Rfam assigns this 75-nucleotide RNA from Streptomyces poonensis to the family "ASpks TB sRNA". Rfam 15.1 lists 9,052 matches to the family in 683 species.
RNA sequence: CUUCAGCGAGCCCAGCCACAGCGGUUGCCCGUCCGGCCGCUCCCGGCCGUACGUGGCCAGCAGCGCCUGUGCCUC
Numbered sequence: 001c002u003u004c005a006g007c008g009a010g011c012c013c014a015g016c017c018a019c020a021g022c023g024g025u026u027g028c029c030c031g032u033c034c035g036g037c038c039g040c041u042c043c044c045g046g047c048c049g050u051a052c053g054u055g056g057c058c059a060g061c062a063g064c065g066c067c068u069g070u071g072c073c074u075c
Stems, first nucleotide, its partner, number of pairs: 014026004033069001038065002043060001045058001047056003